[Rfam]
Record summary
The record is a 148-nucleotide sequence from Cnephaeus nilssonii, which matches "U1 spliceosomal RNA" in Rfam. Rfam classes the family as a spliceosomal small nuclear RNA. A search with the family's covariance model found it, with a score of 101 bits. Pairs were carried over by alignment from the consensus structure, which is taken from published work.

RNA sequence: GUACUUACCUAGGAGGGGAGAUACCAUGAUCACGAAGAUGUUUUUUCCCAGGGUGAUGCUUAUCCAUUGCACUCCGGAUGUGCUGACCCUGUGAUUUCCCCAAAUGUGGGAAACUCAACUGUGUAAUUUGUGGUAGUGGGGGACUGCA
Numbered sequence: 001g002u003a004c005u006u007a008c009c010u011a012g013g014a015g016g017g018g019a020g021a022u023a024c025c026a027u028g029a030u031c032a033c034g035a036a037g038a039u040g041u042u043u044u045u046u047c048c049c050a051g052g053g054u055g056a057u058g059c060u061u062a063u064c065c066a067u068u069g070c071a072c073u074c075c076g077g078a079u080g081u082g083c084u085g086a087c088c089c090u091g092u093g094a095u096u097u098c099c100c101c102a103a104a105u106g107u108g109g110g111a112a113a114c115u116c117a118a119c120u121g122u123g124u125a126a127u128u129u130g131u132g133g134u135a136g137u138g139g140g141g142g143a144c145u146g147c148a
Stems, first nucleotide, its partner, number of pairs: 012122001014120002016048006023042001025040003049091001051090003055087001058083002061080005092117003095113003099109002